[Rfam]
RNA: FMN riboswitch aptamer (RFN element)
Organism: Clostridium botulinum
RNA sequence: UGAAUCCUUCAGGGCGGGGCGCAAUUCCCCACCGGCGGUAAAGUCCGCGAGCUACUUGUAGCAUGAUUCGGUGAAACUCCGAAACCGACAGUUAAAGUCUGGAUGAAAGAUAGGAUUAU
Numbered sequence: 001u002g003a004a005u006c007c008u009u010c011a012g013g014g015c016g017g018g019g020c021g022c023a024a025u026u027c028c029c030c031a032c033c034g035g036c037g038g039u040a041a042a043g044u045c046c047g048c049g050a051g052c053u054a055c056u057u058g059u060a061g062c063a064u065g066a067u068u069c070g071g072u073g074a075a076a077c078u079c080c081g082a083a084a085c086c087g088a089c090a091g092u093u094a095a096a097g098u099c100u101g102g103a104u105g106a107a108a109g110a111u112a113g114g115a116u117u118a119u
Base pairs, nucleotide, nucleotide: 003117004116005115006114007113008112009110010109017029018028019027031098032097033087034086035048036047037046038045043085044084053061067083068082069081070080071079089101090100091099